[Rfam]
RNA sequence: AUAUGAACAAUUUGUAAGUCGCUCUGGAUAAGAGCGUCUGCUAAAUGACAUAAA
Numbered sequence: 001a002u003a004u005g006a007a008c009a010a011u012u013u014g015u016a017a018g019u020c021g022c023u024c025u026g027g028a029u030a031a032g033a034g035c036g037u038c039u040g041c042u043a044a045a046u047g048a049c050a051u052a053a054a
Base pairs, nucleotide, nucleotide: 013043014041015040016039020036021035022034023033024032025031
RNA: UnaL2 LINE 3' element